[Rfam]
RNA sequence: ACUAUCGUGAGGUAGCGGGGAGAGGAAGGGAUAGCGAAAUCGUGGCUCUACGAACAGAAAUGUGAUAUGAAGGCGUAUGUAGUGGAUGAGGAGGCUGAAAACUCUAAAGUCCCAAAAGGUAGUCGUAACCUAUAUGCGUAGAUCACGAGAGUAAACGAGGAAAGAUAUACG
Numbered sequence: 001a002c003u004a005u006c007g008u009g010a011g012g013u014a015g016c017g018g019g020g021a022g023a024g025g026a027a028g029g030g031a032u033a034g035c036g037a038a039a040u041c042g043u044g045g046c047u048c049u050a051c052g053a054a055c056a057g058a059a060a061u062g063u064g065a066u067a068u069g070a071a072g073g074c075g076u077a078u079g080u081a082g083u084g085g086a087u088g089a090g091g092a093g094g095c096u097g098a099a100a101a102c103u104c105u106a107a108a109g110u111c112c113c114a115a116a117a118g119g120u121a122g123u124c125g126u127a128a129c130c131u132a133u134a135u136g137c138g139u140a141g142a143u144c145a146c147g148a149g150a151g152u153a154a155a156c157g158a159g160g161a162a163a164g165a166u167a168u169a170c171g
Stems, first nucleotide, its partner, number of pairs: 002015005030170001035164001040158004045152005061147006073139003077135006084112004090105004
RNA: Group II catalytic intron D1-D4-3
Organism: Streptococcus danieliae